[Rfam]
RNA sequence: GGGCUUCCAAUUUCGGGCGCGCCUUCCUAUAUUCGCCCCUGCCGGCUCGUCCGGCUAUGGCGAUAAACAGGCGAUGGAAUAAGCCGUUCGGACCCGGGGGCGGUACCCGGCGCCUCCACCAAAAGCCGCCGCGAGGGACGGCUUCUGAUGGGGGCGAAACAGGAUCGACGAAGGUGUAAAGAUCGUUCUUUUGCCCGGCAUUGUACCGCCGUUAUCGGGCUAAAAUUAUAGUUGCCAACGACAACUAUGCUGAGGCACGUCUCGCUGCUUAAUGCGGCGCGAUAGUCUCGAAUCAAGCCCUGUGGGUUAGCACCUACAGGCGGGGUCCGGAGGCACCUGGCAACAGAAGCCUCCACU
Number, nucleotide and partner (000 for none) at each position: 001g000002g000003g000004c000005u000006u000007c000008c000009a000010a000011u000012u000013u000014c000015g000016g000017g000018c000019g000020c000021g000022c000023c000024u000025u000026c000027c000028u000029a000030u000031a000032u000033u000034c000035g000036c000037c000038c000039c000040u000041g055042c054043c053044g052045g051046c000047u000048c000049g000050u000051c045052c044053g043054g042055c041056u000057a000058u000059g195060g194061c193062g192063a191064u000065a000066a000067a000068c000069a000070g187071g186072c185073g184074a183075u182076g000077g000078a000079a000080u000081a000082a000083g000084c174085c173086g000087u000088u171089c170090g169091g000092a000093c000094c110095c109096g108097g107098g106099g000100g000101c000102g000103g000104u000105a000106c098107c097108c096109g095110g094111c156112g155113c154114c153115u152116c151117c150118a000119c000120c000121a000122a000123a000124a000125g000126c000127c000128g000129c000130c000131g000132c000133g000134a000135g000136g000137g000138a000139c000140g000141g000142c000143u000144u000145c000146u000147g000148a000149u000150g117151g116152g115153g114154g113155c112156g111157a000158a000159a000160c000161a000162g000163g000164a000165u000166c000167g000168a000169c090170g089171a088172a000173g085174g084175u000176g000177u000178a000179a000180a000181g000182a075183u074184c073185g072186u071187u070188c000189u000190u000191u063192u062193g061194c060195c059196c211197g210198g209199c208200a000201u222202u000203g220204u000205a000206c218207c217208g199209c198210c197211g196212u000213u000214a000215u000216c000217g207218g206219g000220c203221u000222a201223a000224a000225a000226u000227u000228a000229u000230a000231g000232u000233u000234g000235c000236c000237a000238a000239c000240g000241a000242c000243a000244a000245c000246u000247a000248u000249g000250c000251u000252g000253a000254g000255g000256c000257a000258c000259g000260u000261c000262u000263c000264g000265c000266u000267g000268c000269u000270u000271a000272a000273u000274g000275c000276g000277g000278c000279g000280c000281g000282a000283u000284a000285g000286u000287c000288u000289c000290g000291a000292a000293u000294c000295a000296a000297g000298c000299c000300c000301u000302g000303u000304g000305g000306g000307u000308u000309a000310g000311c000312a000313c000314c000315u000316a000317c000318a000319g000320g000321c000322g000323g338324g337325g336326u335327c000328c000329g354330g353331a352332g351333g350334c349335a326336c325337c324338u323339g000340g000341c000342a000343a000344c000345a000346g000347a000348a000349g334350c333351c332352u331353c330354c329355a000356c000357u000
Rfam assigns this 357-nucleotide RNA sequence from Pseudaminobacter soli to the family "Alphaproteobacteria transfer-messenger RNA". Rfam classes the family as a non-coding RNA gene. For this family Rfam cites "Variations on the tmRNA gene" (Mao et al., RNA Biol, 2010). The source organism's lineage runs through Bacteria, Alphaproteobacteria, Hyphomicrobiales, Phyllobacteriaceae and Pseudaminobacter.